[Rfam]
RNA sequence: AAUGCAGCUAGUCCGGCCAGACGAAAAGCAACUCAUCAUUGCCUGCUGCAUACCCUUCAAGAUGA
Number, nucleotide and partner (000 for none) at each position: 001a000002a051003u050004g049005c048006a047007g046008c045009u000010a000011g022012u021013c020014c000015g000016g000017c000018c000019a000020g013021a012022c011023g000024a000025a000026a000027a000028g042029c041030a040031a039032c000033u000034c000035a000036u065037c064038a063039u031040u030041g029042c028043c000044u000045g008046c007047u006048g005049c004050a003051u002052a000053c000054c000055c000056u000057u000058c000059a000060a000061g000062a000063u038064g037065a036
A member of the RNA family "int-alpA RNA" from Salmonella phage CF-SP1, 65 nucleotides long. Rfam classes the family as a small RNA. Taxonomically the source falls in Swiduovirus (Viruses, Duplodnaviria, Heunggongvirae, Uroviricota). Acidobacteria (1 example), Planctomycetes (1 example), Proteobacteria.